Shown here is a 78-nucleotide sequence from Enterococcus columbae, a member of the family "HDV ribozyme from F. prausnitzii". The literature on the family includes a 2009 paper in Science by Webb et al., "Widespread occurrence of self-cleaving ribozymes". Rfam 15.1 lists 3,803 matches to the family in 91 species. The match comes from Rfam's covariance-model search (74 bits). NCBI's taxonomy places the organism under Bacteria, Bacillati, Lactobacillales, Enterococcus, Enterococcus columbae.
RNA sequence: GCUGCUCUAAUAAUAUCACACACCUCUCCAUGGUGAGCAGCAGGCAACGAUCUAAGAAUGAUCGGCUGAGAUGUGAUG
Numbered sequence: 001g002c003u004g005c006u007c008u009a010a011u012a013a014u015a016u017c018a019c020a021c022a023c024c025u026c027u028c029c030a031u032g033g034u035g036a037g038c039a040g041c042a043g044g045c046a047a048c049g050a051u052c053u054a055a056g057a058a059u060g061a062u063c064g065g066c067u068g069a070g071a072u073g074u075g076a077u078g
Stems, first nucleotide, its partner, number of pairs: 001041007022034003048064005